RNA: Small nucleolar RNA SNORA64/SNORA10 family
RNA sequence: CCUCUCCCAGCUCUGCUUAAUCAUACUCAGUGUGUGGUUGGUAUAUUUUUAAAGAGAGAGAGAGGAAGGCCCUCCUAAUGAACGACAGACCAGCCCCAAGUGGUCUCUCUGUUCCUCAGAGUGCAACAGUU
Numbered sequence: 001c002c003u004c005u006c007c008c009a010g011c012u013c014u015g016c017u018u019a020a021u022c023a024u025a026c027u028c029a030g031u032g033u034g035u036g037g038u039u040g041g042u043a044u045a046u047u048u049u050u051a052a053a054g055a056g057a058g059a060g061a062g063a064g065g066a067a068g069g070c071c072c073u074c075c076u077a078a079u080g081a082a083c084g085a086c087a088g089a090c091c092a093g094c095c096c097c098a099a100g101u102g103g104u105c106u107c108u109c110u111g112u113u114c115c116u117c118a119g120a121g122u123g124c125a126a127c128a129g130u131u
Base pairs, nucleotide, nucleotide: 002064003063004062005061006060008058011056012055013054014053015050019039020038021037022036023035024034025033026032072121073120074119078116080114087110088109089108093104094103095102